[Rfam]
Small nucleolar RNA SNORD11B: an 83-nucleotide sequence from Aquarana catesbeiana.
On this family, see Yang et al., Nucleic Acids Res 2006: "snoSeeker: an advanced computational package for screening of guide and orphan snoRNA genes in the human genome".
The family's RNA type in Rfam is C/D-box small nucleolar RNA.
Gene Ontology terms of the family: RNA processing and nucleolus.
The base pairs follow the family's consensus structure, which was predicted with WAR.
It scores 55 bits against the family's covariance model.

RNA sequence: UCUGGCCAGUGAUGAUGAUUCAUGUCUAAUUGCCUGAUACUUCUAUGAAGGCAAUUUCAGUCACUACCUCAUCUGAGGCCAGA
Numbered sequence: 001u002c003u004g005g006c007c008a009g010u011g012a013u014g015a016u017g018a019u020u021c022a023u024g025u026c027u028a029a030u031u032g033c034c035u036g037a038u039a040c041u042u043c044u045a046u047g048a049a050g051g052c053a054a055u056u057u058c059a060g061u062c063a064c065u066a067c068c069u070c071a072u073c074u075g076a077g078g079c080c081a082g083a
Stems, first nucleotide, its partner, number of pairs: 002082006